Background: The family of this 79-nucleotide RNA from Geobacter sp. SVR is "c-di-GMP-I riboswitch aptamer".
[Rfam]
RNA sequence: AUACGAUAAUACUCAACCAUCCGUGAGGGUGGGGCGGAAAGCCUAGGGUCUUUGGAUCGAAGACAGCCGGGAUGCCGAA
Numbered sequence: 001a002u003a004c005g006a007u008a009a010u011a012c013u014c015a016a017c018c019a020u021c022c023g024u025g026a027g028g029g030u031g032g033g034g035c036g037g038a039a040a041g042c043c044u045a046g047g048g049u050c051u052u053u054g055g056a057u058c059g060a061a062g063a064c065a066g067c068c069g070g071g072a073u074g075c076c077g078a079a
Stems, first nucleotide, its partner, number of pairs: 012037002017032006040073001042071002046068002048064003
Pairs were carried over by alignment from the consensus structure, which is taken from published work.